[Rfam]
RNA sequence: UUUUAUGUGAUGACAAUUAACUUUCGCCCCUAACAGAAAGUUUUGGAAACUUCUCAUGUUGAAUGCGGAAUUGGUCUUACUGAUUAUUCUAGAAAUAU
Numbered sequence: 001u002u003u004u005a006u007g008u009g010a011u012g013a014c015a016a017u018u019a020a021c022u023u024u025c026g027c028c029c030c031u032a033a034c035a036g037a038a039a040g041u042u043u044u045g046g047a048a049a050c051u052u053c054u055c056a057u058g059u060u061g062a063a064u065g066c067g068g069a070a071u072u073g074g075u076c077u078u079a080c081u082g083a084u085u086a087u088u089c090u091a092g093a094a095a096u097a098u
Stems, first nucleotide, its partner, number of pairs: 001095001002093003
Record summary
The record is a 98-nucleotide sequence from Lucilia cuprina, which matches "Small nucleolar RNA Me28S-Gm1083" in Rfam. It scores 79 bits against the family's covariance model. For this family Rfam cites "Genome-wide analyses of two families of snoRNA genes from Drosophila melanogaster, demonstrating the extensive utilization of introns for coding of snoRNAs" (Huang et al., RNA, 2005). Pairs were carried over by alignment from the consensus structure.